[Rfam]
RNA sequence: UACAAUGUCUUUUAUAAGAAUAGACACCCAGAGUCACGAUUCGUUUUUCGGAUGAAAUAUGCCAGUGAACGUAUAUAUUCCAUUCGUGGAAUCAUACGGUAGGAUACUCGAUAUUCUACUGUCGUGCUCGCGGUUGAUCUUAGAUUAAUCCUUGUAAAAGGAAUUUGGAAUGUAUCUACCCUGGAAGUAUGAAUUAAUAUACUUAUAAUUAGAUCCAUCUUCACUACAAAC
Numbered sequence: 001u002a003c004a005a006u007g008u009c010u011u012u013u014a015u016a017a018g019a020a021u022a023g024a025c026a027c028c029c030a031g032a033g034u035c036a037c038g039a040u041u042c043g044u045u046u047u048u049c050g051g052a053u054g055a056a057a058u059a060u061g062c063c064a065g066u067g068a069a070c071g072u073a074u075a076u077a078u079u080c081c082a083u084u085c086g087u088g089g090a091a092u093c094a095u096a097c098g099g100u101a102g103g104a105u106a107c108u109c110g111a112u113a114u115u116c117u118a119c120u121g122u123c124g125u126g127c128u129c130g131c132g133g134u135u136g137a138u139c140u141u142a143g144a145u146u147a148a149u150c151c152u153u154g155u156a157a158a159a160g161g162a163a164u165u166u167g168g169a170a171u172g173u174a175u176c177u178a179c180c181c182u183g184g185a186a187g188u189a190u191g192a193a194u195u196a197a198u199a200u201a202c203u204u205a206u207a208a209u210u211a212g213a214u215c216c217a218u219c220u221u222c223a224c225u226a227c228a229a230a231c
Stems, first nucleotide, its partner, number of pairs: 022140003025136002028133002036125004042071005050062001052060003074096003077092003082087001097121010149162004166223004170218001172216001174214004185204007
RNA: Small nucleolar RNA snR11
Organism: Naumovozyma castellii